[Rfam]
RNA sequence: GUGAGAACCGUUUGAAUCAAGUAGUGUAGUGAUUCAAAUGGUUCUC
Numbered sequence: 001g002u003g004a005g006a007a008c009c010g011u012u013u014g015a016a017u018c019a020a021g022u023a024g025u026g027u028a029g030u031g032a033u034u035c036a037a038a039u040g041g042u043u044c045u046c
Stems, first nucleotide, its partner, number of pairs: 003046017
RNA: Plastid-ccsA-ndhD-1 3UTR RNA